Record summary: A member of the RNA family "tRNA" from Erythrobacteraceae bacterium CFH 75059, 74 nucleotides long. The family's RNA type in Rfam is transfer RNA. Taxonomically the source falls in Erythrobacteraceae (Bacteria, Pseudomonadati, Pseudomonadota, Alphaproteobacteria). Rfam 15.1 lists 5,335,975 matches to the family in 14,413 species.
[Rfam]
RNA sequence: GCGCCCUUAGCUCAGCUGGAUAGAGCGCGGGACUUCUAAUCCUGAGGCCGGAGGUUCGAAUCCUCCAGGGCGCG
Numbered sequence: 001g002c003g004c005c006c007u008u009a010g011c012u013c014a015g016c017u018g019g020a021u022a023g024a025g026c027g028c029g030g031g032a033c034u035u036c037u038a039a040u041c042c043u044g045a046g047g048c049c050g051g052a053g054g055u056u057c058g059a060a061u062c063c064u065c066c067a068g069g070g071c072g073c074g
Base pairs, nucleotide, nucleotide: 001073002072003071004070005069006068007067010026011025012024013023028044029043030042031041032040050066051065052064053063054062